[Rfam]
RNA sequence: AAGUCCCGUAUCAGGCGGCUAUGCAGACUGCAAGCUCGCUUGCAAGGAUGCAUAGACAUCUGAUACGACAACAGAAAUGAGGAAGUAGGCCGACAGGCCGGAUUCCGAAUUUCUGUAGCAUGACGAAAGCGUCAGCGAAGUCAUGCGUGGGGCUU
Numbered sequence: 001a002a003g004u005c006c007c008g009u010a011u012c013a014g015g016c017g018g019c020u021a022u023g024c025a026g027a028c029u030g031c032a033a034g035c036u037c038g039c040u041u042g043c044a045a046g047g048a049u050g051c052a053u054a055g056a057c058a059u060c061u062g063a064u065a066c067g068a069c070a071a072c073a074g075a076a077a078u079g080a081g082g083a084a085g086u087a088g089g090c091c092g093a094c095a096g097g098c099c100g101g102a103u104u105c106c107g108a109a110u111u112u113c114u115g116u117a118g119c120a121u122g123a124c125g126a127a128a129g130c131g132u133c134a135g136c137g138a139a140g141u142c143a144u145g146c147g148u149g150g151g152g153c154u155u
Base pairs, nucleotide, nucleotide: 001155002154003153004152005151006150007149008066009065010064011063014060015059017057019055020054021053022052023051024050025049028046029045030043031042032041033040034039071116072115073114074113075112076111077110078109081106082105083104084103088099089098090097091096118146119145120144121143122142123141124140129136130135

This 155-nucleotide RNA from Oribacterium sp. C9 belongs to the Rfam family "Clostridiales-1 RNA".
Rfam classes the family as a small RNA.
The family has 194 seed sequences and 1,172 matches in Rfam 15.1.